[Rfam]
RNA sequence: UGGUGAUGAUGCUUCUACUCACGAUGGUCUUCAGAGCCCUCUCUGGUGAACGAGGGGCUGCUGACAAUGCCAGCGCGGCAGUCACUGAACCGUGGGG
Numbered sequence: 001u002g003g004u005g006a007u008g009a010u011g012c013u014u015c016u017a018c019u020c021a022c023g024a025u026g027g028u029c030u031u032c033a034g035a036g037c038c039c040u041c042u043c044u045g046g047u048g049a050a051c052g053a054g055g056g057g058c059u060g061c062u063g064a065c066a067a068u069g070c071c072a073g074c075g076c077g078g079c080a081g082u083c084a085c086u087g088a089a090c091c092g093u094g095g096g097g
Stems, first nucleotide, its partner, number of pairs: 001092004
Dot-bracket structure: ((((....................................................................................)))).....